[Rfam]
RNA sequence: CCCGCAUGAAAGACAUGGGUAGUGAGAUGUCACAGCGCAUCUCACUACCUUGUCUUUCAUGCCGUU
Numbered sequence: 001c002c003c004g005c006a007u008g009a010a011a012g013a014c015a016u017g018g019g020u021a022g023u024g025a026g027a028u029g030u031c032a033c034a035g036c037g038c039a040u041c042u043c044a045c046u047a048c049c050u051u052g053u054c055u056u057u058c059a060u061g062c063c064g065u066u
Stems, first nucleotide, its partner, number of pairs: 008058008017050003021046009